This 35-nucleotide RNA sequence from Myotis brandtii belongs to the Rfam family "Iron response element I".
The organism belongs to Myotis, within Eukaryota.
The match comes from Rfam's covariance-model search (36 bits).
Rfam 15.1 lists 6,829 matches to the family in 599 species.
It is annotated as a cis-regulatory element.
[Rfam]
RNA sequence: CCGCCUCUUGCUUCAACAGUGUUUGGAGGGAACGG
Dot-bracket structure: (((..(((...((((((...).))))).))).)))